[Rfam]
Rfam assigns this 74-nucleotide sequence from Novosphingobium sp. AAP1 to the family "tRNA". Rfam classes the family as a transfer RNA.
RNA sequence: GCCCAUGUAGCUCAGCUGGAUAGAGCGCCCCUUUCGCAAGGGGGAGGUCGUAGGUUCGAUUCCUAUCGCGGGAU
Numbered sequence: 001g002c003c004c005a006u007g008u009a010g011c012u013c014a015g016c017u018g019g020a021u022a023g024a025g026c027g028c029c030c031c032u033u034u035c036g037c038a039a040g041g042g043g044g045a046g047g048u049c050g051u052a053g054g055u056u057c058g059a060u061u062c063c064u065a066u067c068g069c070g071g072g073a074u
Stems, first nucleotide, its partner, number of pairs: 002072003006068002010026004028044005050066005
It scores 50 bits against the family's covariance model.